[Rfam]
RNA sequence: CAGGUCUCUUGAAUCUGUUCCACUUUAUGGACACUCAUUUCACGCUUUCUGUCUGCUUUUCUUCCAGGGCUCUCCCCUUGCCCUAGGCUCUGGCCGCUGCGCCCGGCGGGGUCAACUCCAUGGUUAGCAUGGAGCUGUAGGAGUCUAAAUUGGGGACACAGAUGUUGGGAACGUCGCCUUGCAGUGUUAACUUGGCUUUCAUGAAGCUUUUUGAUCUUCCACAAGAGGUAGGCUACGGGUGAAACCUCUUAAGCUAAUACUUCUAUGAAGAGAUGCUUUGGAUAGGGUAACAGCGGCGGAUAUUGGUGAGUUGUUUGACAAAAACCAUUCAACGCCGGAGACUGGCUCUCAUCCAGUGGAUGCAUUAAGUGGAUUGUCUGUCAGGGCUGUCUCUAGGUUUAAUUCCUGGCCUCUCUGUGCUUAGGGUAAACAAAACUUGGCCUUAAAUGAGGUCCUGUGAGAGGGGACCUCACCAUUGAAUGCUGGACAUUUCUUUGGGGCCUUAUGUUUUGUUUGCCUCUGAGGUACUCAGGGGCAUUUAGGUUUUUCCUCAUCAAUAAAUAAUUAUG
Number, nucleotide and partner (000 for none) at each position: 001c000002a000003g000004g000005u000006c000007u000008c000009u000010u000011g000012a000013a000014u000015c000016u000017g000018u000019u031020c030021c029022a028023c000024u000025u000026u000027a000028u022029g021030g020031a019032c000033a000034c000035u000036c000037a000038u000039u000040u000041c000042a000043c000044g000045c000046u000047u000048u000049c000050u000051g000052u000053c000054u000055g000056c000057u000058u000059u000060u000061c000062u000063u000064c000065c000066a000067g000068g000069g000070c000071u000072c000073u000074c000075c000076c000077c000078u000079u000080g000081c000082c000083c000084u147085a146086g145087g144088c143089u142090c141091u140092g000093g000094c109095c108096g107097c106098u105099g104100c000101g000102c000103c000104c099105g098106g097107c096108g095109g094110g000111g000112u000113c000114a000115a000116c134117u133118c132119c131120a130121u129122g128123g000124u000125u000126a000127g000128c122129a121130u120131g119132g118133a117134g116135c000136u000137g000138u000139a000140g091141g090142a089143g088144u087145c086146u085147a084148a000149a000150u000151u000152g000153g000154g000155g000156a000157c419158a418159c417160a416161g415162a414163u000164g410165u409166u408167g407168g406169g405170a404171a403172c000173g000174u000175c000176g000177c000178c000179u000180u000181g000182c000183a000184g000185u000186g000187u000188u000189a000190a000191c000192u000193u000194g000195g000196c000197u000198u000199u000200c000201a000202u000203g000204a000205a000206g000207c000208u000209u000210u000211u000212u000213g000214a000215u000216c000217u000218u000219c000220c000221a000222c000223a000224a249225g248226a247227g246228g245229u244230a000231g000232g000233c000234u000235a000236c000237g000238g000239g000240u000241g000242a000243a000244a229245c228246c227247u226248c225249u224250u000251a278252a277253g276254c275255u000256a000257a000258u000259a000260c270261u269262u268263c267264u000265a000266u000267g263268a262269a261270g260271a000272g000273a000274u000275g254276c253277u252278u251279u000280g000281g000282a000283u000284a000285g000286g000287g000288u000289a000290a000291c000292a000293g000294c337295g336296g335297c334298g333299g000300a000301u000302a000303u000304u000305g000306g000307u000308g000309a000310g000311u000312u000313g000314u000315u000316u000317g000318a000319c000320a000321a000322a000323a000324a000325c000326c000327a000328u000329u000330c000331a000332a000333c298334g297335c296336c295337g294338g000339a000340g000341a000342c000343u000344g000345g000346c000347u000348c000349u000350c362351a361352u360353c359354c358355a000356g000357u000358g354359g353360a352361u351362g350363c000364a000365u000366u000367a000368a000369g000370u000371g000372g000373a000374u000375u000376g000377u000378c000379u000380g000381u000382c000383a000384g000385g000386g000387c000388u000389g000390u000391c000392u000393c000394u000395a000396g000397g000398u000399u000400u000401a000402a000403u171404u170405c169406c168407u167408g166409g165410c164411c000412u000413c000414u162415c161416u160417g159418u158419g157420c524421u523422u522423a521424g000425g518426g517427u516428a515429a514430a513431c512432a511433a510434a509435a508436c507437u000438u000439g502440g501441c500442c499443u498444u497445a496446a495447a494448u000449g471450a470451g469452g468453u467454c466455c465456u464457g000458u000459g000460a000461g000462a000463g000464g456465g455466g454467a453468c452469c451470u450471c449472a000473c000474c000475a000476u000477u000478g492479a491480a490481u489482g488483c000484u000485g000486g000487a000488c482489a481490u480491u479492u478493c000494u447495u446496u445497g444498g443499g442500g441501c440502c439503u000504u000505a000506u000507g436508u435509u434510u433511u432512g431513u430514u429515u428516g427517c426518c425519u000520c000521u423522g422523a421524g420525g000526u000527a000528c000529u000530c000531a000532g000533g000534g000535g000536c000537a000538u000539u000540u000541a000542g000543g000544u000545u000546u000547u000548u000549c000550c000551u000552c000553a000554u000555c000556a000557a000558u000559a000560a000561a000562u000563a000564a000565u000566u000567a000568u000569g000
Rfam assigns this 569-nucleotide RNA sequence from Hepatovirus ahepa to the family "Hepatitis A virus internal ribosome entry site (IRES)". Its family is annotated with ribosome binding in the Gene Ontology. Lineage of the source: Viruses > Pisoniviricetes > Picornaviridae > Heptrevirinae > Hepatovirus ahepa. About the family: This family represents the internal ribosome entry site (IRES) of the the Hepatitis A virus. IRES elements allow cap and end-independent translation of mRNA in the host cell.